[Rfam]
RNA sequence: AUGCAUGGUGCUAACCCCGGACUUGUCAGAAUACUGUCCUCUGAAGCAGCCCCAAUGCCUGUGCUACAUCCACUGUGCCAUUCAGUGUUGCAGGUCAUGAUGCUUCAUGCAAUUGGUCUGUGUCAGAGCAAUGGAUACAUUU
Number, nucleotide and partner (000 for none) at each position: 001a000002u000003g064004c063005a062006u061007g060008g059009u000010g058011c057012u000013a000014a000015c000016c000017c000018c000019g052020g051021a000022c049023u048024u046025g000026u044027c043028a042029g000030a000031a000032u000033a000034c000035u000036g000037u000038c000039c000040u000041c000042u028043g027044a026045a000046g024047c000048a023049g022050c000051c020052c019053c000054a000055a000056u000057g011058c010059c008060u007061g006062u005063g004064c003065u000066a000067c000068a000069u000070c000071c000072a000073c000074u000075g000076u000077g000078c134079c133080a132081u131082u130083c000084a000085g000086u125087g124088u000089u122090g121091c120092a119093g118094g117095u116096c115097a114098u000099g000100a000101u000102g000103c000104u000105u000106c000107a000108u000109g000110c000111a000112a000113u000114u097115g096116g095117u094118c093119u092120g091121u090122g089123u000124c087125a086126g000127a000128g000129c000130a082131a081132u080133g079134g078135a000136u000137a000138c000139a000140u000141u000142u000
small nucleolar RNA snoR134: a 142-nucleotide sequence from Oryza brachyantha. A reference for the family is Chen and Wu (2009), "Mining small RNA sequencing data: a new approach to identify small nucleolar RNAs in Arabidopsis", Nucleic Acids Res. The family's RNA type in Rfam is H/ACA-box small nucleolar RNA. Lineage of the source: Eukaryota > Embryophyta > Poales > Poaceae > Oryza.